[Rfam]
RNA sequence: GGUCAUGAGUGCCAGCGCUAAGCCCAGGCUUGCUGGCCGGCAACCCUCCUACCGCGGUGGGGUGCCCCUGGUGAGGACCUGGCCGGCGCGCAGGGCGUCCGGCAAGCGCGGGCC
Numbered sequence: 001g002g003u004c005a006u007g008a009g010u011g012c013c014a015g016c017g018c019u020a021a022g023c024c025c026a027g028g029c030u031u032g033c034u035g036g037c038c039g040g041c042a043a044c045c046c047u048c049c050u051a052c053c054g055c056g057g058u059g060g061g062g063u064g065c066c067c068c069u070g071g072u073g074a075g076g077a078c079c080u081g082g083c084c085g086g087c088g089c090g091c092a093g094g095g096c097g098u099c100c101g102g103c104a105a106g107c108g109c110g111g112g113c114c
Stems, first nucleotide, its partner, number of pairs: 001079004009038001011037006021030002039066003044062003048057002082103005